[Rfam]
RNA sequence: GAUUAACUGGCUGUAAAGGAGUGCCGCGCGCACGGGCUGGAUAUUCCC
Numbered sequence: 001g002a003u004u005a006a007c008u009g010g011c012u013g014u015a016a017a018g019g020a021g022u023g024c025c026g027c028g029c030g031c032a033c034g035g036g037c038u039g040g041a042u043a044u045u046c047c048c
Base pairs, nucleotide, nucleotide: 008039009038010037011036012035021033022032023031024030
RNA: ssnA RNA